[Rfam]
RNA sequence: AUUCUUUCGCAGAGGCAAUAUCGUAGCUUAUGAGGUUUAUCCGAGGCGCGAUCAUUGCUAGUUGAAAACUUUACCCAAUACCCCGCCUGGAAGACUUGAAAGAUAGUCAGCCGUGGCAAUUUUUGAUGGUCUCUAACGAGA
Numbered sequence: 001a002u003u004c005u006u007u008c009g010c011a012g013a014g015g016c017a018a019u020a021u022c023g024u025a026g027c028u029u030a031u032g033a034g035g036u037u038u039a040u041c042c043g044a045g046g047c048g049c050g051a052u053c054a055u056u057g058c059u060a061g062u063u064g065a066a067a068a069c070u071u072u073a074c075c076c077a078a079u080a081c082c083c084c085g086c087c088u089g090g091a092a093g094a095c096u097u098g099a100a101a102g103a104u105a106g107u108c109a110g111c112c113g114u115g116g117c118a119a120u121u122u123u124u125g126a127u128g129g130u131c132u133c134u135a136a137c138g139a140g141a
Stems, first nucleotide, its partner, number of pairs: 020052005026047003034042002085117003088113003093108004130141004
Dot-bracket structure: ...................(((((.(((.....((.....))..))))))))................................((((((..((((........))))..))).)))............((((....))))
A member of the RNA family "U4 spliceosomal RNA" from Clarias magur, 141 nucleotides long. Clan: U4 clan. The base pairs follow the family's consensus structure, which is taken from published work.